RNA sequence: GAAAUGACUUAUAUGAAAACUCAUAUAGUUUUGGUAAUAUGGACCAAAAGUUUCUACAAGACAACCGUAAAUUGUCUAGCUAUGGGUGAAAGUGUAUCUAGG
Numbered sequence: 001g002a003a004a005u006g007a008c009u010u011a012u013a014u015g016a017a018a019a020c021u022c023a024u025a026u027a028g029u030u031u032u033g034g035u036a037a038u039a040u041g042g043a044c045c046a047a048a049a050g051u052u053u054c055u056a057c058a059a060g061a062c063a064a065c066c067g068u069a070a071a072u073u074g075u076c077u078a079g080c081u082a083u084g085g086g087u088g089a090a091a092g093u094g095u096a097u098c099u100a101g102g
Base pairs, nucleotide, nucleotide: 019087020086021085022084023083024082025081029049030048031047032046033045034044035043059077060076061075062074063073064072
RNA: Purine riboswitch aptamer